This 69-nucleotide sequence from Amycolatopsis sp. SID8362 belongs to the Rfam family "ASpks TB sRNA". By type it is an antisense RNA.

[Rfam]
RNA sequence: CUUGAGCGACCCGAGCCACAGCGGCGACGGCCGGUCCUGGCCGUAGGUGGCGAGCACGGCCUGCGCCUC
Numbered sequence: 001c002u003u004g005a006g007c008g009a010c011c012c013g014a015g016c017c018a019c020a021g022c023g024g025c026g027a028c029g030g031c032c033g034g035u036c037c038u039g040g041c042c043g044u045a046g047g048u049g050g051c052g053a054g055c056a057c058g059g060c061c062u063g064c065g066c067c068u069c
Stems, first nucleotide, its partner, number of pairs: 015025003030064002032059001037054002041050003